[Rfam]
RNA: bZIP non canonical Hac1/Xbp1 intron
Organism: Chaetomium globosum
RNA sequence: UGCUUCCCCCGACGCGACACAACAUCCUGCUGAGAUGUUGUGCCUGGACCUGCAGUGUCGGUCGGCGGAAGCA
Numbered sequence: 001u002g003c004u005u006c007c008c009c010c011g012a013c014g015c016g017a018c019a020c021a022a023c024a025u026c027c028u029g030c031u032g033a034g035a036u037g038u039u040g041u042g043c044c045u046g047g048a049c050c051u052g053c054a055g056u057g058u059c060g061g062u063c064g065g066c067g068g069a070a071g072c073a
Base pairs, nucleotide, nucleotide: 001073002072003071004070005069006068007067009065010064011063012062013061021039022038023037024036025035026034047059048058049057